Overview: The record is a 69-nucleotide RNA sequence from Actinoplanes awajinensis, which matches "ASpks TB sRNA" in Rfam. A search with the family's covariance model found it, with a score of 60 bits. By type it is an antisense RNA. The family's consensus secondary structure is taken from published work. The organism belongs to Actinoplanes awajinensis, within Bacteria.
[Rfam]
RNA sequence: CUUGACGCUGCCCAGCAGCAACGGCUCGGUACGGUCCUGCCCGUACGCGGCCAGCAGCGCCUGCGCCUC
Number, nucleotide and partner (000 for none) at each position: 001c000002u000003u000004g000005a000006c000007g000008c000009u000010g000011c000012c000013c000014a026015g025016c024017a000018g000019c000020a000021a000022c000023g000024g016025c015026u014027c063028g000029g000030u000031a000032c059033g058034g000035u000036c000037c054038u053039g052040c000041c050042c049043g048044u000045a000046c000047g000048c043049g042050g041051c000052c039053a038054g037055c000056a000057g000058c033059g032060c000061c000062u000063g027064c000065g000066c000067c000068u000069c000